A member of the RNA family "mir-9186 microRNA precursor family" from Myotis lucifugus, 80 nucleotides long. Taxonomically the source falls in Myotis (Eukaryota, Bilateria, Dipnotetrapodomorpha, Chiroptera). Rfam 15.1 lists 143 matches to the family in 7 species.

RNA sequence: UAGUGGGAGGAUGACUGACUGGCUGGUACUGUGGUAAUGACUGCCCGCAGUACCAGACAUUCAGCCACCCUCCCCCUUCA
Numbered sequence: 001u002a003g004u005g006g007g008a009g010g011a012u013g014a015c016u017g018a019c020u021g022g023c024u025g026g027u028a029c030u031g032u033g034g035u036a037a038u039g040a041c042u043g044c045c046c047g048c049a050g051u052a053c054c055a056g057a058c059a060u061u062c063a064g065c066c067a068c069c070c071u072c073c074c075c076c077u078u079c080a
Stems, first nucleotide, its partner, number of pairs: 002077002005074001007072004013066001015064004020059001023056009